[Rfam]
RNA: mir-3689 microRNA precursor family
Organism: Nomascus leucogenys
Nucleotides: 072
Base pairs, nucleotide, nucleotide: 001071003069004068005067014059015058016057017056020053021052022051023050024049025048026047027046029044031042032041033040034039
Number, partner (000 for none) and nucleotide at each position: 001071g002000g003069g004068a005067g006000g007000u008000g009000u010000g011000a012000u013000a014059u015058u016057g017056u018000g019000c020053u021052u022051c023050c024049u025048g026047g027046g028000a029044g030000g031042u032041g033040u034039g035000a036000u037000c038000c039034c040033g041032u042031g043000c044029u045000c046027c047026c048025c049024g050023g051022g052021a053020g054000g055000a056017g057016u058015g059014a060000u061000c062000c063000c064000g065000c066000g067005c068004u069003c070000a071001c072000u